RNA sequence: GCCAUUCGCUCGUCCCGCUCCCUCCUCGUGAGCGCGUGGACGAUGGAUGGUGAAGGGAGA
Numbered sequence: 001g002c003c004a005u006u007c008g009c010u011c012g013u014c015c016c017g018c019u020c021c022c023u024c025c026u027c028g029u030g031a032g033c034g035c036g037u038g039g040a041c042g043a044u045g046g047a048u049g050g051u052g053a054a055g056g057g058a059g060a
Base pairs, nucleotide, nucleotide: 001051002050010043011042012041013040014039015038016034017033018032019031020030
Shown here is a 60-nucleotide sequence from Trypanosoma conorhini, a member of the family "Trypanosomatid snoRNA TB8Cs2H1". It is annotated as an H/ACA-box small nucleolar RNA. The family has 6 seed sequences and 52 matches in Rfam 15.1. It scores 55 bits against the family's covariance model. For this family Rfam cites "A genome-wide analysis of C/D and H/ACA-like small nucleolar RNAs in Trypanosoma brucei reveals a trypanosome-specific pattern of rRNA modification" (Liang et al., RNA, 2005). Rfam links the family to the GO terms nucleolus and RNA processing.